Description: Shown here is a 54-nucleotide RNA sequence from Anguilla anguilla, a member of the family "UnaL2 LINE 3' element".
[Rfam]
RNA sequence: GAUGACAAGUCGUGUAAGUCGCUCUGGAUAAGAGCAUCUGCUAAAUGCCUGUAA
Numbered sequence: 001g002a003u004g005a006c007a008a009g010u011c012g013u014g015u016a017a018g019u020c021g022c023u024c025u026g027g028a029u030a031a032g033a034g035c036a037u038c039u040g041c042u043a044a045a046u047g048c049c050u051g052u053a054a
Base pairs, nucleotide, nucleotide: 013043014041015040016039021035022034023033024032025031

About the family: The eel long interspersed element (LINE) UnaL2 and its partner short interspersed element (SINE) share a conserved 3' tail containing a stem-loop that is critical for their retrotransposition. The source organism's lineage runs through Eukaryota, Chordata, Craniata, Actinopteri and Anguilla. Rfam links the family to the GO term transposition, RNA-mediated.